[Rfam]
RNA: Selenocysteine transfer RNA
Organism: Paenalicyclobacillus mengziensis
RNA sequence: GGGGGCGAAUGGGGUACUGGUGUCCUCCCCGGUCUUCAAAACCGAGCGUGCGGUGUGGUGCAUCGCAGGUGAGUUCGAUUCUCACACGCUCCC
Number, nucleotide and partner (000 for none) at each position: 001g093002g092003g091004g090005g089006c088007g087008a000009a000010u000011g000012g027013g026014g025015u000016a023017c022018u000019g000020g000021u000022g017023u016024c000025c014026u013027c012028c046029c000030c044031g043032g042033u041034c000035u000036u000037c000038a000039a000040a000041a033042c032043c031044g030045a000046g028047c000048g000049u067050g066051c065052g064053g063054u000055g000056u000057g000058g000059u000060g000061c000062a000063u053064c052065g051066c050067a049068g000069g000070u084071g083072a082073g081074u000075u000076c000077g000078a000079u000080u000081c073082u072083c071084a070085c000086a000087c007088g006089c005090u004091c003092c002093c001